Rfam assigns this 121-nucleotide RNA from Rhizobium sp. Root482 to the family "Rhizobiales sRNA Atu_C8". The organism belongs to Rhizobium, within Bacteria. It is annotated as a small RNA.
RNA sequence: GAACACGAUCGUAGCAAUUCUUGUGGUGGGACGGCGCAUGGGCAGGAUGGUAUAACCAUCCGGCGAUAGCCACCCAUGCGCAAACACGAGGCCCUGACGGGGCCUUUUUUUAUGCCUUCAA
Dot-bracket structure: ........(................)..((.(.(((((((((..((((((.....)))))).((....))..))))))))).......(((((((...)))))))........).))....
Numbered sequence: 001g002a003a004c005a006c007g008a009u010c011g012u013a014g015c016a017a018u019u020c021u022u023g024u025g026g027u028g029g030g031a032c033g034g035c036g037c038a039u040g041g042g043c044a045g046g047a048u049g050g051u052a053u054a055a056c057c058a059u060c061c062g063g064c065g066a067u068a069g070c071c072a073c074c075c076a077u078g079c080g081c082a083a084a085c086a087c088g089a090g091g092c093c094c095u096g097a098c099g100g101g102g103c104c105u106u107u108u109u110u111u112a113u114g115c116c117u118u119c120a121a
Stems, first nucleotide, its partner, number of pairs: 009026001029117002032114001034081009045061006063070002089105007